[Rfam]
RNA sequence: UAAACGGCCCUUUUCAGGGCCACCAAAUCAAUCACGAAAGAGUUGU
Numbered sequence: 001u002a003a004a005c006g007g008c009c010c011u012u013u014u015c016a017g018g019g020c021c022a023c024c025a026a027a028u029c030a031a032u033c034a035c036g037a038a039a040g041a042g043u044u045g046u
Stems, first nucleotide, its partner, number of pairs: 006021006
A member of the RNA family "Histone 3' UTR stem-loop" from Culex quinquefasciatus, 46 nucleotides long. Taxonomically the source falls in Culex pipiens complex (Eukaryota, Opisthokonta, Mandibulata, Diptera). Pairs were carried over by alignment from the consensus structure, which is taken from published work. Rfam describes the family as follows. The mRNAs of metazoan histone genes lack a poly-A tail. 3' end processing occurs at a site between a highly conserved stem-loop (modelled by this family) and a purine rich region around 20 nts downstream (the histone downstream element, or HDE).